Rfam assigns this 81-nucleotide RNA from Vibrio astriarenae to the family "antisense RNA of dnaA mRNA". The match comes from Rfam's covariance-model search (55 bits). Pairs were carried over by alignment from the consensus structure, which was predicted with RNAfold.
RNA sequence: UUUCGCGUUUGGCUUGUUAUCAACGAUCGCGUUACCGACCGCAUGCAAUAGGUGAGUUUUACCCAAGCCAGUACCACCGUA
Dot-bracket structure: ....(((.((((...((..(........).))..)))).)))........((((.((...((........))))))))...
NCBI's taxonomy places the organism under Bacteria, Pseudomonadati, Pseudomonadota, Vibrionaceae, Vibrio.
Rfam links the family to the GO term regulation of mRNA stability.